[Rfam]
RNA sequence: AUCUGCUUGGCACUCGCGAACACCGCGAUUUUUUCGGCAAAUUCGCGGCGUUGGCUUGGUGCCAAACAGAU
Numbered sequence: 001a002u003c004u005g006c007u008u009g010g011c012a013c014u015c016g017c018g019a020a021c022a023c024c025g026c027g028a029u030u031u032u033u034u035c036g037g038c039a040a041a042u043u044c045g046c047g048g049c050g051u052u053g054g055c056u057u058g059g060u061g062c063c064a065a066a067c068a069g070a071u
Stems, first nucleotide, its partner, number of pairs: 003069003007065003011061003016055002019052003023048006
Overview
Rfam assigns this 71-nucleotide RNA sequence from Caenorhabditis angaria to the family "mir-790 microRNA precursor family". Its family is annotated with miRNA-mediated post-transcriptional gene silencing and RISC complex in the Gene Ontology. The family has 6 seed sequences and 12 matches in Rfam 15.1. Taxonomically the source falls in Caenorhabditis (Eukaryota, Bilateria, Nematoda, Chromadorea). It scores 73 bits against the family's covariance model.